Background: Shown here is a 67-nucleotide sequence, a member of the family "mir-124 microRNA precursor family". Rfam links the family to the GO terms miRNA-mediated post-transcriptional gene silencing and RISC complex.
[Rfam]
RNA sequence: CCGUGUUCACAGCGGACCUUGAUUUAAAUGUCCAUACAAUUAAGGCACGCGGUGAAUGCCAAGAACG
Numbered sequence: 001c002c003g004u005g006u007u008c009a010c011a012g013c014g015g016a017c018c019u020u021g022a023u024u025u026a027a028a029u030g031u032c033c034a035u036a037c038a039a040u041u042a043a044g045g046c047a048c049g050c051g052g053u054g055a056a057u058g059c060c061a062a063g064a065a066c067g
Stems, first nucleotide, its partner, number of pairs: 003059008012050003017045008